[Rfam]
Nucleotides: 239
Stems, first nucleotide, its partner, number of pairs: 004107001007105002011102001013101005028077004033072004038067004043062003047058002078091001120160009129148002198222002203217005
Number, partner (000 for none) and nucleotide at each position: 001000c002000u003000u004107u005000u006000u007105u008104a009000c010000g011102c012000a013101u014100a015099a016098u017097a018000a019000a020000c021000c022000a023000c024000c025000u026000c027000u028077a029076u030075a031074c032000a033072u034071u035070u036069u037000a038067c039066u040065g041064u042000u043062c044061c045060u046000a047058u048057u049000a050000a051000a052000u053000u054000a055000g056000a057048a058047a059000c060045a061044g062043g063000u064041a065040u066039a067038g068000a069036a070035a071034a072033a073000c074031g075030u076029a077028u078091u079000g080000u081000a082000u083000u084000g085000u086000u087000u088000a089000u090000g091078a092000g093000u094000u095000c096000a097017u098016g099015u100014u101013a102011g103000a104008u105007a106000c107004a108000u109000u110000u111000c112000a113000u114000a115000a116000u117000a118000a119000g120160c121159a122158c123157u124156a125155c126154u127153a128152a129148a130147c131000a132000c133000c134000a135000a136000u137000a138000a139000a140000a141000a142000a143000a144000a145000u146000c147130g148129u149000u150000a151000u152128u153127u154126g155125g156124u157123a158122g159121u160120g161000c162000u163000a164000u165000u166000u167000u168000g169000u170000g171000c172000u173000g174000u175000u176000a177000a178000a179000a180000a181000c182000u183000a184000u185000u186000g187000a188000u189000u190000a191000c192000u193000u194000c195000c196000a197000a198222a199221u200000g201000g202000c203217g204216g205215u206214u207213u208000g209000u210000u211000g212000g213207a214206g215205g216204u217203u218000u219000a220000a221199g222198u223000c224000g225000c226000c227000a228000u229000g230000a231000a232000g233000u234000a235000u236000a237000u238000c239000a
A member of the RNA family "Cis-regulator of HTH transcription factor" from Pisciglobus halotolerans, 239 nucleotides long. The family's RNA type in Rfam is cis-regulatory element. This element was identified by RNA deep sequencing of Clostridioides difficile 630 where it is located immediately upstream of an uncharacterized HTH-type Transcriptional regulator. Homologues are found widely across firmicutes, consistently located 5' of transcriptional regulators of similar size and sequence, which strongly supports a cis-regulatory function. RNA is referred to as CD630_SQ2397 in ref. It scores 180 bits against the family's covariance model.